[Rfam]
RNA sequence: ACCCGGGUCCGGGCCCCUCUGGCGGUCGAGGCGUCGACCGUGAUGUCGGACCCCUUCU
Numbered sequence: 001a002c003c004c005g006g007g008u009c010c011g012g013g014c015c016c017c018u019c020u021g022g023c024g025g026u027c028g029a030g031g032c033g034u035c036g037a038c039c040g041u042g043a044u045g046u047c048g049g050a051c052c053c054c055u056u057c058u
Stems, first nucleotide, its partner, number of pairs: 006052007022041008